[Rfam]
Nucleotides: 127
Stems, first nucleotide, its partner, number of pairs: 007041003011037002014035004046079007054071002090122011
Number, partner (000 for none) and nucleotide at each position: 001000a002000a003000g004000u005000u006000c007041u008040c009039g010000c011037g012036g013000c014035g015034g016033u017032c018000c019000u020000c021000c022000u023000c024000c025000u026000c027000c028000u029000c030000c031000u032017g033016a034015c035014c036012c037011c038000g039009c040008g041007g042000g043000c044000c045000u046079g047078g048077u049076c050075a051074g052073c053000g054071c055070u056000c057000c058000u059000c060000c061000c062000u063000c064000c065000u066000c067000c068000c069000g070055a071054g072000a073052g074051c075050u076049g077048a078047c079046c080000a081000a082000c083000u084000u085000a086000a087000g088000a089000a090122g091121c092120g093119c094118u095117c096116g097115u098114c099113g100112a101000a102000u103000c104000c105000u106000c107000c108000u109000c110000c111000c112100u113099c114098g115097a116096c117095g118094a119093g120092c121091g122090c123000u124000u125000u126000u127000u